[Rfam]
RNA sequence: GUGCCAUGGCGAUGAAUGAGUCCCAUAUAUUAAAUUUUCAUUUCACUUUGUCAGCAAUCUUCUUGGUUACUUGUUGAUCAUUAAAGAAUGGAAGAUUU
Numbered sequence: 001g002u003g004c005c006a007u008g009g010c011g012a013u014g015a016a017u018g019a020g021u022c023c024c025a026u027a028u029a030u031u032a033a034a035u036u037u038u039c040a041u042u043u044c045a046c047u048u049u050g051u052c053a054g055c056a057a058u059c060u061u062c063u064u065g066g067u068u069a070c071u072u073g074u075u076g077a078u079c080a081u082u083a084a085a086g087a088a089u090g091g092a093a094g095a096u097u098u
Stems, first nucleotide, its partner, number of pairs: 037092006050078008

About this RNA:
A member of the RNA family "Small nucleolar RNA snoR99" from Thalictrum thalictroides, 98 nucleotides long. Rfam links the family to the GO terms RNA processing and nucleolus. Pairs were carried over by alignment from the consensus structure, which was predicted with WAR. Lineage of the source: Eukaryota > Streptophyta > Embryophyta > Thalictroideae > Thalictrum. On this family, see Marker et al., Curr Biol 2002: "Experimental RNomics: identification of 140 candidates for small non-messenger RNAs in the plant Arabidopsis thaliana".